[Rfam]
RNA sequence: CCCGGGGAUGAUUGUCCAAACGCAAUUCUUGUGUUCCUCGGUGGUAACAGGAGUUGUGAGUGGACAUCAGGCCUCUGG
Numbered sequence: 001c002c003c004g005g006g007g008a009u010g011a012u013u014g015u016c017c018a019a020a021c022g023c024a025a026u027u028c029u030u031g032u033g034u035u036c037c038u039c040g041g042u043g044g045u046a047a048c049a050g051g052a053g054u055u056g057u058g059a060g061u062g063g064a065c066a067u068c069a070g071g072c073c074u075c076u077g078g
Stems, first nucleotide, its partner, number of pairs: 002077001004075004009069004014065005021058011